[Rfam]
RNA sequence: CGGGAAAAGACAUUUCCUUCCCGCAGUUGCAUGAAACGGUUUGUAACAGGUUCUCCUGGCGCGUCCUUAUCUCAGCAGCAGGUGUCUCCUCCCUCUCCUCGCUGCGAUGCGCCCUACUGGCCUCGCUCGUCCUGAUCGACUGGCGAGGCUCUUU
Numbered sequence: 001c002g003g004g005a006a007a008a009g010a011c012a013u014u015u016c017c018u019u020c021c022c023g024c025a026g027u028u029g030c031a032u033g034a035a036a037c038g039g040u041u042u043g044u045a046a047c048a049g050g051u052u053c054u055c056c057u058g059g060c061g062c063g064u065c066c067u068u069a070u071c072u073c074a075g076c077a078g079c080a081g082g083u084g085u086c087u088c089c090u091c092c093c094u095c096u097c098c099u100c101g102c103u104g105c106g107a108u109g110c111g112c113c114c115u116a117c118u119g120g121c122c123u124c125g126c127u128c129g130u131c132c133u134g135a136u137c138g139a140c141u142g143g144c145g146a147g148g149c150u151c152u153u154u
Base pairs, nucleotide, nucleotide: 058113059112060111061110062109063108064107065106080099081098082097084095120149121148122147123146124145125144126143127142130139131138

The record is a 154-nucleotide sequence from Shinella sp. WSJ-2, which matches "Rhizobiales sRNA Atu_C7" in Rfam. Rfam classes the family as a small RNA. It scores 48 bits against the family's covariance model.